Rfam assigns this 311-nucleotide RNA sequence from Winogradskyella arenosi to the family "Bacterial RNase P class A". Lineage of the source: Bacteria > Bacteroidota > Flavobacteriia > Flavobacteriaceae > Winogradskyella.
RNA sequence: CAAGUAUAUCGCCUUAUCGAUUCUAAAUGUAUUUAGGGUAGGAAAGUCCGAACACCAUAGUGUAAUCAUAGUGGUUAACAGCCACCCGCCGGAAGGUGAGGAAAAGUGCAACAGAAAGUAUGUACAGGUCAUGCUGUAGUGAAACCAGGUAAACUCUAUGAGGUGCAAUGUCAUGUAUACUAACGCUUGAGCGUACACGCGCGAUUGUUAGAGGGUAGGCAGCUAAAGUUUGCUGGUAACAGUAAACGUAGAUAAAUGAUAAGGGCUCCUUUUUUGGAGUACAGAAUUCGGCUUAUAGAUAUGCUUAAACA
Numbered sequence: 001c002a003a004g005u006a007u008a009u010c011g012c013c014u015u016a017u018c019g020a021u022u023c024u025a026a027a028u029g030u031a032u033u034u035a036g037g038g039u040a041g042g043a044a045a046g047u048c049c050g051a052a053c054a055c056c057a058u059a060g061u062g063u064a065a066u067c068a069u070a071g072u073g074g075u076u077a078a079c080a081g082c083c084a085c086c087c088g089c090c091g092g093a094a095g096g097u098g099a100g101g102a103a104a105a106g107u108g109c110a111a112c113a114g115a116a117a118g119u120a121u122g123u124a125c126a127g128g129u130c131a132u133g134c135u136g137u138a139g140u141g142a143a144a145c146c147a148g149g150u151a152a153a154c155u156c157u158a159u160g161a162g163g164u165g166c167a168a169u170g171u172c173a174u175g176u177a178u179a180c181u182a183a184c185g186c187u188u189g190a191g192c193g194u195a196c197a198c199g200c201g202c203g204a205u206u207g208u209u210a211g212a213g214g215g216u217a218g219g220c221a222g223c224u225a226a227a228g229u230u231u232g233c234u235g236g237u238a239a240c241a242g243u244a245a246a247c248g249u250a251g252a253u254a255a256a257u258g259a260u261a262a263g264g265g266c267u268c269c270u271u272u273u274u275u276g277g278a279g280u281a282c283a284g285a286a287u288u289c290g291g292c293u294u295a296u297a298g299a300u301a302u303g304c305u306u307a308a309a310c311a
Stems, first nucleotide, its partner, number of pairs: 002306009011296001012264007020039008044294003048291005053165004061199003066161005071085005086100001087098004101156002106154002108150002169221004180211005190205001192203003228247008
Pairs were carried over by alignment from the consensus structure, which is taken from published work. The match comes from Rfam's covariance-model search (191 bits).